This 135-nucleotide sequence belongs to the Rfam family "Group II catalytic intron D1-D4-4".
[Rfam]
RNA sequence: UUGCGGGUGAAAGUCCCGUCAUGGUAAAACCAGAAAGCCAUGUAGUAUAUACCCAAUGCUGAAAGCGAUUUCAGUAUUGAAGCGGUAUGUAAAAACUCCAAUGUUGGGGGAGCAAGUUAGCAGUCCGUAACAUAA
Numbered sequence: 001u002u003g004c005g006g007g008u009g010a011a012a013g014u015c016c017c018g019u020c021a022u023g024g025u026a027a028a029a030c031c032a033g034a035a036a037g038c039c040a041u042g043u044a045g046u047a048u049a050u051a052c053c054c055a056a057u058g059c060u061g062a063a064a065g066c067g068a069u070u071u072c073a074g075u076a077u078u079g080a081a082g083c084g085g086u087a088u089g090u091a092a093a094a095a096c097u098c099c100a101a102u103g104u105u106g107g108g109g110g111a112g113c114a115a116g117u118u119a120g121c122a123g124u125c126c127g128u129a130a131c132a133u134a135a
Base pairs, nucleotide, nucleotide: 020042021041022040023039024038049088050087051086052085053084054079055078056077057076058075059074063070064069096109097108098107099106100105112128113127
For this family Rfam cites "Group II introns: structure and catalytic versatility of large natural ribozymes" (Lehmann and Schmidt, Crit Rev Biochem Mol Biol, 2003). A search with the family's covariance model found it, with a score of 92 bits. The family has 90 seed sequences and 840 matches in Rfam 15.1. Rfam describes the family as follows. Group II introns are found in rRNA, tRNA and mRNA of organelles in fungi, plants and protists, and also in mRNA in bacteria.